[Rfam]
RNA sequence: GAUAUAGUGAGGAGUGGUAACUCCACCACCGUUGGCGUGUGUUGUACUGCCAGCGGUCGAGGAGUUCCUUAACCUCGCUGUAAU
Numbered sequence: 001g002a003u004a005u006a007g008u009g010a011g012g013a014g015u016g017g018u019a020a021c022u023c024c025a026c027c028a029c030c031g032u033u034g035g036c037g038u039g040u041g042u043u044g045u046a047c048u049g050c051c052a053g054c055g056g057u058c059g060a061g062g063a064g065u066u067c068c069u070u071a072a073c074c075u076c077g078c079u080g081u082a083a084u
Stems, first nucleotide, its partner, number of pairs: 003082010016069002019066005026059001029056009
Dot-bracket structure: ..((((((((((...((.(((((..(..(((((((((..........)))))))))..)..))))).))...))))))))))..

This 84-nucleotide RNA sequence from Tribolium castaneum belongs to the Rfam family "mir-2765 microRNA precursor family". Its family is annotated with RISC complex and miRNA-mediated post-transcriptional gene silencing in the Gene Ontology. It is one of the family's seed sequences. Pairs were carried over by alignment from the consensus structure, which was predicted with RNAalifold. Rfam 15.1 lists 109 matches to the family in 106 species.